[Rfam]
RNA sequence: UCAAAGAAUAUCAUUCAUCCAUAGACAGUAGGUGUUCCAUAAAUCCUACCGAGGCUGAAGAGAAAAAGCUUAUAUUAAUAAUAAAGCUCUCUUCACACGGUGGAGUGAGCUUUUUUGAUACGAUU
Numbered sequence: 001u002c003a004a005a006g007a008a009u010a011u012c013a014u015u016c017a018u019c020c021a022u023a024g025a026c027a028g029u030a031g032g033u034g035u036u037c038c039a040u041a042a043a044u045c046c047u048a049c050c051g052a053g054g055c056u057g058a059a060g061a062g063a064a065a066a067a068g069c070u071u072a073u074a075u076u077a078a079u080a081a082u083a084a085a086g087c088u089c090u091c092u093u094c095a096c097a098c099g100g101u102g103g104a105g106u107g108a109g110c111u112u113u114u115u116u117g118a119u120a121c122g123a124u125u
Stems, first nucleotide, its partner, number of pairs: 028049005034038001086110004091105005
Rfam assigns this 125-nucleotide RNA sequence from Acetobacterium paludosum to the family "Ribosomal protein L10 leader". The base pairs follow the family's consensus structure, which was predicted with CMfinder. Rfam links the family to the GO term regulation of gene expression. A search with the family's covariance model found it, with a score of 59 bits. Taxonomically the source falls in Acetobacterium (Bacteria, Bacillati, Bacillota, Eubacteriaceae). It is annotated as a cis-regulatory leader.